[Rfam]
RNA sequence: ACCGUCUUUAUCUUGGGGAGCACGGCCGUCCGAGGAUCGAAAAGUGAGGGCGGCCCUGCUGACACCAAAACACAACACUCCGCGCCGCUCGGCUGACAGCUGGGUUGGUGCAAUUUUUGGACCC
Numbered sequence: 001a002c003c004g005u006c007u008u009u010a011u012c013u014u015g016g017g018g019a020g021c022a023c024g025g026c027c028g029u030c031c032g033a034g035g036a037u038c039g040a041a042a043a044g045u046g047a048g049g050g051c052g053g054c055c056c057u058g059c060u061g062a063c064a065c066c067a068a069a070a071c072a073c074a075a076c077a078c079u080c081c082g083c084g085c086c087g088c089u090c091g092g093c094u095g096a097c098a099g100c101u102g103g104g105u106u107g108g109u110g111c112a113a114u115u116u117u118u119g120g121a122c123c124c
Base pairs, nucleotide, nucleotide: 005019006018007017008016009015020059021058022057025054026053027052028051029050030049031048038044082111083110084109085108086107087106090102091101092100093099094098